[Rfam]
RNA sequence: CUUACAGAGUUUAUUGGCAUUCUGUCCACCUCCUUCUUAUUAUUUCCUAUCAAUGGAUCUCUCUUUCCAUGAGGAGGUGGGUAUACUGCCAAUUGAGCUGUGUUGG
Numbered sequence: 001c002u003u004a005c006a007g008a009g010u011u012u013a014u015u016g017g018c019a020u021u022c023u024g025u026c027c028a029c030c031u032c033c034u035u036c037u038u039a040u041u042a043u044u045u046c047c048u049a050u051c052a053a054u055g056g057a058u059c060u061c062u063c064u065u066u067c068c069a070u071g072a073g074g075a076g077g078u079g080g081g082u083a084u085a086c087u088g089c090c091a092a093u094u095g096a097g098c099u100g101u102g103u104u105g106g
Stems, first nucleotide, its partner, number of pairs: 011096001014092006023083011
Shown here is a 106-nucleotide sequence from Lupinus albus, a member of the family "MIR394 microRNA precursor family". On this family, see Jones-Rhoades and Bartel, Mol Cell 2004: "Computational identification of plant microRNAs and their targets, including a stress-induced miRNA". It scores 92 bits against the family's covariance model.